[Rfam]
RNA sequence: GUCAUAGACCCCAUGGCUGAAGCCAGGGGCUUGGGGACAAGCCCUGCAGCUAAGCCAGACCUAUGACCAGCCUGAGUGCCGGAGUUCAGCCGGAACGAUGAAGGCACUACGUUGGGAGGGUGCACACCUUAAGAUGCAUUCCCAGUCUUCUGCCCUGUGGCACAGCGUUAAAAGCGAGCAGGGGUGCAGCGAGCGGUGCGCUGUGCGCUAAACCCCUUCCAACAUUGACGAGGGAAGACCGC
Numbered sequence: 001g002u003c004a005u006a007g008a009c010c011c012c013a014u015g016g017c018u019g020a021a022g023c024c025a026g027g028g029g030c031u032u033g034g035g036g037a038c039a040a041g042c043c044c045u046g047c048a049g050c051u052a053a054g055c056c057a058g059a060c061c062u063a064u065g066a067c068c069a070g071c072c073u074g075a076g077u078g079c080c081g082g083a084g085u086u087c088a089g090c091c092g093g094a095a096c097g098a099u100g101a102a103g104g105c106a107c108u109a110c111g112u113u114g115g116g117a118g119g120g121u122g123c124a125c126a127c128c129u130u131a132a133g134a135u136g137c138a139u140u141c142c143c144a145g146u147c148u149u150c151u152g153c154c155c156u157g158u159g160g161c162a163c164a165g166c167g168u169u170a171a172a173a174g175c176g177a178g179c180a181g182g183g184g185u186g187c188a189g190c191g192a193g194c195g196g197u198g199c200g201c202u203g204u205g206c207g208c209u210a211a212a213c214c215c216c217u218u219c220c221a222a223c224a225u226u227g228a229c230g231a232g233g234g235a236a237g238a239c240c241g242c
Base pairs, nucleotide, nucleotide: 001067002066003065004064005063006062007061010029011028012026016023017022030041031040032039033038070229072227074225075108076107077106078105079104111223112222113221114220115219116218117217118216119215120214124158125157128152131149132148133147134146135145139236140235141234142233143232160206161205162204163203164202165201166200167199168198172197174194175193178190179189
RNA: HNH endonuclease-associated RNA and ORF (HEARO) RNA